Small Cajal body specific RNA 4: a 123-nucleotide RNA. Rfam classes the family as a small Cajal body RNA. Pairs were carried over by alignment from the consensus structure, which was predicted with RNAfold. On this family, see Darzacq et al., EMBO J 2002: "Cajal body-specific small nuclear RNAs: a novel class of 2'-O-methylation and pseudouridylation guide RNAs". Rfam's curators write: scaRNAs are a specific class of small nuclear RNAs which localise to the Cajal bodies and guide the modification of RNA polymerase II transcribed spliceosomal RNAs U1, U2, U4, U5 and U12. ACA26 belongs to the H/ACA box class of guide RNAs as it has the predicted hairpin-hinge-hairpin-tail structure, conserved H/ACA-box motifs and is found associated with GAR1. The family is grouped with related families in Rfam's "SCARNA4 clan". It is one of the family's seed sequences. Gene Ontology terms of the family: RNA processing, nucleolus and Cajal body.

RNA sequence: ACUGGAGGACUAAGGAGGCUGGGUCUGAUGAGGCAAGAUUUUGCUGAUACAUUGCUCCUAGAAAAAAGGGUUGGCAAGAGCAGCCCUGGAGACUCACACGGCUGACUGUUCUACCCAACACUC
Numbered sequence: 001a002c003u004g005g006a007g008g009a010c011u012a013a014g015g016a017g018g019c020u021g022g023g024u025c026u027g028a029u030g031a032g033g034c035a036a037g038a039u040u041u042u043g044c045u046g047a048u049a050c051a052u053u054g055c056u057c058c059u060a061g062a063a064a065a066a067a068g069g070g071u072u073g074g075c076a077a078g079a080g081c082a083g084c085c086c087u088g089g090a091g092a093c094u095c096a097c098a099c100g101g102c103u104g105a106c107u108g109u110u111c112u113a114c115c116c117a118a119c120a121c122u123c
Stems, first nucleotide, its partner, number of pairs: 002061002004058004009053001017045003021041006068116004079107002081104005087096003